The family of this 72-nucleotide sequence from Medicago truncatula is "MIR2629 microRNA precursor family". The source organism's lineage runs through Eukaryota, Streptophyta, eudicotyledons, Gunneridae and Medicago.

RNA sequence: UGCUGAGGUUUUCCUCGGUAAUUAACUGCAGCCGGUUUUGGACUUCCUCGGCAGUUAACUGUCGAAGGACAU
Dot-bracket structure: ...........((.((((((.((((((((.....................)))))))).)))))).))....
Numbered sequence: 001u002g003c004u005g006a007g008g009u010u011u012u013c014c015u016c017g018g019u020a021a022u023u024a025a026c027u028g029c030a031g032c033c034g035g036u037u038u039u040g041g042a043c044u045u046c047c048u049c050g051g052c053a054g055u056u057a058a059c060u061g062u063c064g065a066a067g068g069a070c071a072u
Stems, first nucleotide, its partner, number of pairs: 012068002015065006022058008
Gene Ontology terms of the family: miRNA-mediated post-transcriptional gene silencing and RISC complex. The match comes from Rfam's covariance-model search (67 bits).